[Rfam]
RNA sequence: CCGUACUUAGACGGAUAGUGAUAGCUUAAGUUUCCGAAUUAUUACGGUAAAUUCAGCUAUUUCAGAUUUUUAAGUAUGAUGUUGUGUUUGCAUAUUGGUCUAGGAAACUAGACUGGAGUAACAUCAAGUUACUCGUUUCACUUCCUGUAUAUUUUGAACCUUUUUGGUUUAUAACCGUCCAUUUUGGACGGUUUUUUUC
Numbered sequence: 001c002c003g004u005a006c007u008u009a010g011a012c013g014g015a016u017a018g019u020g021a022u023a024g025c026u027u028a029a030g031u032u033u034c035c036g037a038a039u040u041a042u043u044a045c046g047g048u049a050a051a052u053u054c055a056g057c058u059a060u061u062u063c064a065g066a067u068u069u070u071u072a073a074g075u076a077u078g079a080u081g082u083u084g085u086g087u088u089u090g091c092a093u094a095u096u097g098g099u100c101u102a103g104g105a106a107a108c109u110a111g112a113c114u115g116g117a118g119u120a121a122c123a124u125c126a127a128g129u130u131a132c133u134c135g136u137u138u139c140a141c142u143u144c145c146u147g148u149a150u151a152u153u154u155u156g157a158a159c160c161u162u163u164u165u166g167g168u169u170u171a172u173a174a175c176c177g178u179c180c181a182u183u184u185u186g187g188a189c190g191g192u193u194u195u196u197u198u199c
Stems, first nucleotide, its partner, number of pairs: 009068002012065001020061005026056002029053005096115008117133006149170001151168003173193008
This 199-nucleotide RNA from Actinobacillus pleuropneumoniae belongs to the Rfam family "GcvB RNA". For this family Rfam cites "A small RNA regulates multiple ABC transporter mRNAs by targeting C/A-rich elements inside and upstream of ribosome-binding sites" (Sharma et al., Genes Dev, 2007). The gcvB gene encodes a small untranslated RNA involved in expression of the dipeptide and oligopeptide transport systems in Escherichia coli. Included several unknown homologues in alignment (Bateman A pers obs). It base-pairs with SorC. This interaction triggers the degradation of GcvB by RNase E, alleviating the GcvB-mediated mRNA repression of other amino acid-related transport and metabolic genes. Lineage of the source: Bacteria > Pseudomonadati > Pseudomonadota > Actinobacillus > Actinobacillus pleuropneumoniae serovar 5. Rfam classes the family as a non-coding RNA gene.